[Rfam]
RNA sequence: AGGGCGGUAUCUGCAAGUGAAAGAACCGCACCGACAGAAAUCCGUUUUCGGCAAUCAUACUGGUUGUUUGAUGUCUUUUGCAUAGCUGUGCGUACUCUGCUCUGAGCCGUUAGGGACCGAGACAGAAGG
Numbered sequence: 001a002g003g004g005c006g007g008u009a010u011c012u013g014c015a016a017g018u019g020a021a022a023g024a025a026c027c028g029c030a031c032c033g034a035c036a037g038a039a040a041u042c043c044g045u046u047u048u049c050g051g052c053a054a055u056c057a058u059a060c061u062g063g064u065u066g067u068u069u070g071a072u073g074u075c076u077u078u079u080g081c082a083u084a085g086c087u088g089u090g091c092g093u094a095c096u097c098u099g100c101u102c103u104g105a106g107c108c109g110u111u112a113g114g115g116a117c118c119g120a121g122a123c124a125g126a127a128g129g
Stems, first nucleotide, its partner, number of pairs: 002032002004029005010024002097125003100121003104117001107115002
Dot-bracket structure: .(((((((.((...........))))))).))................................................................((((((.(..((.....)).).))).)))....